A member of the RNA family "mir-2774 microRNA precursor family" from Bombyx mori, 67 nucleotides long. NCBI's taxonomy places the organism under Eukaryota, Pancrustacea, Insecta, Bombycoidea, Bombyx. The literature on the family includes a 2010 paper in BMC Genomics by Liu et al., "MicroRNAs of Bombyx mori identified by Solexa sequencing".
Nucleotides: 067
Base pairs, nucleotide, nucleotide: 004064005063010058011057015053016052017051020049021048022047024045025044026043027042029040
Number, partner (000 for none) and nucleotide at each position: 001000a002000c003000a004064a005063c006000a007000u008000u009000c010058g011057g012000a013000c014000c015053g016052u017051c018000g019000g020049u021048c022047u023000a024045c025044c026043g027042a028000a029040c030000a031000a032000u033000a034000u035000c036000a037000c038000u039000c040029g041000c042027u043026c044025g045024g046000c047022g048021g049020a050000a051017g052016a053015u054000c055000u056000c057011c058010c059000u060000u061000u062000c063005g064004u065000c066000g067000u